[Rfam]
RNA sequence: AUUUGUGUGAGGAUGGUGUUCAGCACCAAGGACAGGUGUGUUAUUUGUGUAAUGACGUUGUUCAGCACCAAGGACAGGUGUGUUACUUG
Numbered sequence: 001a002u003u004u005g006u007g008u009g010a011g012g013a014u015g016g017u018g019u020u021c022a023g024c025a026c027c028a029a030g031g032a033c034a035g036g037u038g039u040g041u042u043a044u045u046u047g048u049g050u051a052a053u054g055a056c057g058u059u060g061u062u063c064a065g066c067a068c069c070a071a072g073g074a075c076a077g078g079u080g081u082g083u084u085a086c087u088u089g
Stems, first nucleotide, its partner, number of pairs: 001079006014070007022062004027057001030050001032048007
This 89-nucleotide RNA sequence from Branchiostoma belcheri belongs to the Rfam family "mir-2060 microRNA precursor family".
The base pairs follow the family's consensus structure, which was predicted with RNAalifold.
The source organism's lineage runs through Eukaryota, Opisthokonta, Eumetazoa, Cephalochordata and Branchiostoma.